[Rfam]
RNA sequence: GUCCAUGUAUCCAUCUCAAUCCAUGUGUGUUGGAGUGUGUUGACGUGGAACUUAAACUAAAUUCCACACCAACCCACCCCAAUACACAUGGAUUAAGGUGGAUUCCUGG
Numbered sequence: 001g002u003c004c005a006u007g008u009a010u011c012c013a014u015c016u017c018a019a020u021c022c023a024u025g026u027g028u029g030u031u032g033g034a035g036u037g038u039g040u041u042g043a044c045g046u047g048g049a050a051c052u053u054a055a056a057c058u059a060a061a062u063u064c065c066a067c068a069c070c071a072a073c074c075c076a077c078c079c080c081a082a083u084a085c086a087c088a089u090g091g092a093u094u095a096a097g098g099u100g101g102a103u104u105c106c107u108g109g
Stems, first nucleotide, its partner, number of pairs: 004108002007105001009103006016096001018094015035077003039073004045067003